The family of this 138-nucleotide RNA is "Molybdenum/Tungsten riboswitch aptamer (Moco RNA motif)". For this family Rfam cites "in molybdenum cofactor and tungsten cofactor metabolism" (Regulski et al., Mol Microbiol, 2008).

[Rfam]
RNA sequence: UCAGGACCGCAGUUCCGAGGCGCAGGGCCUUCGCUUUUCCGGAAGCAUGGCGCUGCGUCCGUGAUCCCCGGAUCACCGGGCGGGCGGGGAAACGCGCCCGCCUCCCGGACAUUGGAAAGGAGCCGAACGCAUGACCCC
Numbered sequence: 001u002c003a004g005g006a007c008c009g010c011a012g013u014u015c016c017g018a019g020g021c022g023c024a025g026g027g028c029c030u031u032c033g034c035u036u037u038u039c040c041g042g043a044a045g046c047a048u049g050g051c052g053c054u055g056c057g058u059c060c061g062u063g064a065u066c067c068c069c070g071g072a073u074c075a076c077c078g079g080g081c082g083g084g085c086g087g088g089g090a091a092a093c094g095c096g097c098c099c100g101c102c103u104c105c106c107g108g109a110c111a112u113u114g115g116a117a118a119g120g121a122g123c124c125g126a127a128c129g130c131a132u133g134a135c136c137c138c
Stems, first nucleotide, its partner, number of pairs: 003132001012123005019059007027051003033046004061076005078103009088093001104115002